[Rfam]
RNA: RtT RNA
Organism: Yersinia mollaretii
Nucleotides: 130
Base pairs, nucleotide, nucleotide: 017119018118020116021115023113034095035094037093038092044090045089046088047086051061052060068083069082070081071080072079073078
Number, partner (000 for none) and nucleotide at each position: 001000c002000u003000c004000a005000a006000u007000u008000g009000g010000u011000a012000a013000a014000g015000c016000a017119g018118u019000u020116g021115g022000c023113u024000u025000u026000u027000a028000a029000u030000c031000a032000a033000u034095u035094g036000g037093u038092c039000g040000c041000a042000g043000g044090u045089u046088c047086g048000a049000g050000c051061c052060g053000a054000g055000c056000g057000a058000a059000g060052c061051g062000a063000g064000a065000c066000a067000g068083c069082a070081a071080c072079g073078c074000g075000u076000u077000a078073g079072c080071g081070u082069u083068g084000a085000c086047c087000c088046g089045a090044a091000g092038g093037g094035c095034g096000a097000g098000u099000c100000c101000g102000c103000a104000g105000g106000a107000c108000g109000a110000g111000u112000c113023a114000u115021c116020c117000c118018g119017c120000a121000c122000g123000a124000c125000c126000c127000a128000c129000c130000a